[Rfam]
RNA: mir-927 microRNA precursor family
RNA sequence: CGCUAGUGUUUUCGUUUUAGAAUCCAAACGCUUUGCCCAACAACUUGGCAACGGUAAAGCGUAGGAAUUCUAAACCAAAAAUACU
Numbered sequence: 001c002g003c004u005a006g007u008g009u010u011u012u013c014g015u016u017u018u019a020g021a022a023u024c025c026a027a028a029c030g031c032u033u034u035g036c037c038c039a040a041c042a043a044c045u046u047g048g049c050a051a052c053g054g055u056a057a058a059g060c061g062u063a064g065g066a067a068u069u070c071u072a073a074a075c076c077a078a079a080a081a082u083a084c085u
Base pairs, nucleotide, nucleotide: 010079011078012077014076016074017073018072019071020070021069023067025065028062029061030060031059032058033057034056036054037053